[Rfam]
Nucleotides: 072
Base pairs, nucleotide, nucleotide: 001072002071003070004069005068012023013022014021015020025060026059027058029055032054033053034052038047039046
Number, partner (000 for none) and nucleotide at each position: 001072c002071u003070c004069u005068g006000g007000a008000g009000a010000a011000a012023g013022u014021c015020a016000u017000u018000a019000u020015u021014g022013a023012c024000u025060a026059c027058c028000a029055a030000c031000g032054a033053g034052g035000c036000a037000a038047g039046c040000c041000a042000a043000a044000u045000g046039g047038c048000u049000a050000a051000a052034c053033u054032u055029u056000c057000a058027g059026g060025u061000c062000a063000c064000a065000g066000g067000a068005c069004a070003g071002a072001g